[Rfam]
RNA sequence: UUAUUGGUUCCUCGCAACGGUGUUCAGCUUACUUGGUCAGGUUCGGAAGAAAGCAGCCUGGGUUGAAAUUUCUGUGUGCCGAGGGGUGCUGGUAACAC
Numbered sequence: 001u002u003a004u005u006g007g008u009u010c011c012u013c014g015c016a017a018c019g020g021u022g023u024u025c026a027g028c029u030u031a032c033u034u035g036g037u038c039a040g041g042u043u044c045g046g047a048a049g050a051a052a053g054c055a056g057c058c059u060g061g062g063u064u065g066a067a068a069u070u071u072c073u074g075u076g077u078g079c080c081g082a083g084g085g086g087u088g089c090u091g092g093u094a095a096c097a098c
Stems, first nucleotide, its partner, number of pairs: 004092005009085006015076001017075004022070001023067007033060001035058003042051003

The family of this 98-nucleotide sequence from Pseudohaemophilus paraphrohaemolyticus is "Bacterial small signal recognition particle RNA". From the family's description: The signal recognition particle (SRP) is a universally conserved ribonucleoprotein involved in the co-translational targeting of proteins to membranes. The family's consensus secondary structure is taken from published work.